[Rfam]
RNA: MIR477 microRNA precursor family
Organism: Manihot esculenta
RNA sequence: GAAGUUCCAAUCUCCCUCAAAGGCUUCCAAUAUUCCAGGCUAAUCAUAAGAUUUAUCUAAGAAUUUUGGGAGCCUUUGAAGGGGAUUGAAGGCUU
Numbered sequence: 001g002a003a004g005u006u007c008c009a010a011u012c013u014c015c016c017u018c019a020a021a022g023g024c025u026u027c028c029a030a031u032a033u034u035c036c037a038g039g040c041u042a043a044u045c046a047u048a049a050g051a052u053u054u055a056u057c058u059a060a061g062a063a064u065u066u067u068g069g070g071a072g073c074c075u076u077u078g079a080a081g082g083g084g085a086u087u088g089a090a091g092g093c094u095u
Stems, first nucleotide, its partner, number of pairs: 003094004008088008017079002020076011032064001